[Rfam]
Background
Small nucleolar RNA SNORA77: a 123-nucleotide sequence from Carlito syrichta. On this family, see Schattner et al., RNA 2006: "A computational screen for mammalian pseudouridylation guide H/ACA RNAs". Lineage of the source: Eukaryota > Dipnotetrapodomorpha > Tetrapoda > Haplorrhini > Carlito. The family's consensus secondary structure was predicted with RNAalifold.
RNA sequence: GCAGACUUACUCUGCACCCGACUUCAGCCCCAGGCGGUGCUUUUUCUGUCUGUCAGAGAAACAUUCCAGGUUCUGUGGCCACCUGACCUGACAAGGGCAAUGCAGCCACCUGGGGAUACAUGC
Dot-bracket structure: ((((((.......(((((.(.((........)).)))))).......))))))...........(((((((.(((((....(((..........)))...)))))..))))))).........

Gene Ontology terms of the family: nucleolus and RNA processing. It scores 96 bits against the family's covariance model.